Rfam assigns this 204-nucleotide sequence from Wolbachia pipientis to the family "permuted transfer-messenger RNA". The family's consensus secondary structure is taken from published work. Bacterial tmRNA, also known as 10Sa RNA or SsrA, is named for its dual tRNA and mRNA-like properties. The source organism's lineage runs through Bacteria, Pseudomonadota, Alphaproteobacteria, Wolbachieae and Wolbachia. It is annotated as a non-coding RNA gene.
RNA sequence: GGCAAUAAACUUACCGUGCAAUAGGUGUAUUGGACCCGAGGGCAGUACUCGGCGCCUCCACAAAUUAGGGGGGGUGUAUUAGGAUCGACAUGCAUAGUAAAGAUGGUGAUUUUGCUCGGUUAGACACCACCGAUAAGAGUUCAUAAUUUAAAAGCAAACGAUAAUUUUGCUGCAGAUAGUAAUGAACUUUCUCUUGCUGCUUAA
Numbered sequence: 001g002g003c004a005a006u007a008a009a010c011u012u013a014c015c016g017u018g019c020a021a022u023a024g025g026u027g028u029a030u031u032g033g034a035c036c037c038g039a040g041g042g043c044a045g046u047a048c049u050c051g052g053c054g055c056c057u058c059c060a061c062a063a064a065u066u067a068g069g070g071g072g073g074g075u076g077u078a079u080u081a082g083g084a085u086c087g088a089c090a091u092g093c094a095u096a097g098u099a100a101a102g103a104u105g106g107u108g109a110u111u112u113u114g115c116u117c118g119g120u121u122a123g124a125c126a127c128c129a130c131c132g133a134u135a136a137g138a139g140u141u142c143a144u145a146a147u148u149u150a151a152a153a154g155c156a157a158a159c160g161a162u163a164a165u166u167u168u169g170c171u172g173c174a175g176a177u178a179g180u181a182a183u184g185a186a187c188u189u190u191c192u193c194u195u196g197c198u199g200c201u202u203a204a
Stems, first nucleotide, its partner, number of pairs: 001116005014106004026094003031090002036052005053076007117132004